sul1 RNA: a 54-nucleotide RNA from Methylocella tundrae. The family's consensus secondary structure is taken from published work. Lineage of the source: Bacteria > Pseudomonadati > Alphaproteobacteria > Beijerinckiaceae > Methylocella. Rfam classes the family as a riboswitch.

[Rfam]
RNA sequence: GUCGGACCCGAUCAGAUCGGGUGGCUCGGCCGGGCGCCUAUCCCCCGGAAACAC
Numbered sequence: 001g002u003c004g005g006a007c008c009c010g011a012u013c014a015g016a017u018c019g020g021g022u023g024g025c026u027c028g029g030c031c032g033g034g035c036g037c038c039u040a041u042c043c044c045c046c047g048g049a050a051a052c053a054c
Stems, first nucleotide, its partner, number of pairs: 006022006030048005
Dot-bracket structure: .....((((((.....)))))).......(((((.........)))))......